[Rfam]
RNA: Small nucleolar RNA SNORA42/SNORA80 family
RNA sequence: GCAUGGGUUUGGAUUUACAGCAGGCUCAUCCCUGUGGGCCUUUCAUAGUGUCCCAUUCCGGAGCAAACUGUAGCCCGAACCAUUGCCUGGCCUCCUUGCCCACAGGCUGCAGGCACUUGAGUGGGUUGCACAGUG
Numbered sequence: 001g002c003a004u005g006g007g008u009u010u011g012g013a014u015u016u017a018c019a020g021c022a023g024g025c026u027c028a029u030c031c032c033u034g035u036g037g038g039c040c041u042u043u044c045a046u047a048g049u050g051u052c053c054c055a056u057u058c059c060g061g062a063g064c065a066a067a068c069u070g071u072a073g074c075c076c077g078a079a080c081c082a083u084u085g086c087c088u089g090g091c092c093u094c095c096u097u098g099c100c101c102a103c104a105g106g107c108u109g110c111a112g113g114c115a116c117u118u119g120a121g122u123g124g125g126u127u128g129c130a131c132a133g134u135g
Stems, first nucleotide, its partner, number of pairs: 001058001003056002005053004015048003020043001022041003025037002071128006082117001086113002088109006